A member of the RNA family "EcpR1" from Tepidamorphus gemmatus, 113 nucleotides long. A reference for the family is Wilms et al. (2012), "Deep sequencing uncovers numerous small RNAs on all four replicons of the plant pathogen Agrobacterium tumefaciens", RNA Biol. Rfam describes the family as follows. Perviously named SmelC291, SmrC10, or Sra33. According to its overproduction phenotype it was renamed Elongated Cell Phenotype RNA1. Induced by stress,EcpR1 negatively regulates cell cycle master regulatory genes dnaA and gcrA at post-transcriptional level by base pairing between its strongly conserved GC-rich loop and the target mRNAs. It's regulation is hfq-independent but requires RNase E to regulate dnaA. Lineage of the source: Bacteria > Pseudomonadati > Alphaproteobacteria > Tepidamorphaceae > Tepidamorphus. The match comes from Rfam's covariance-model search (106 bits).

RNA sequence: AUACCCUACGGAAUGCUCAGGUCCGCCGCAUCUCCUGGGUCCGUGGGGUUAGGCCGGUCGGAGUGCGGUUAGAGUGGCCUCCUCGUAUGACCCGCCCUCCGGCCGGCCACCUU
Numbered sequence: 001a002u003a004c005c006c007u008a009c010g011g012a013a014u015g016c017u018c019a020g021g022u023c024c025g026c027c028g029c030a031u032c033u034c035c036u037g038g039g040u041c042c043g044u045g046g047g048g049u050u051a052g053g054c055c056g057g058u059c060g061g062a063g064u065g066c067g068g069u070u071a072g073a074g075u076g077g078c079c080u081c082c083u084c085g086u087a088u089g090a091c092c093c094g095c096c097c098u099c100c101g102g103c104c105g106g107c108c109a110c111c112u113u
Stems, first nucleotide, its partner, number of pairs: 003049008016039006052108011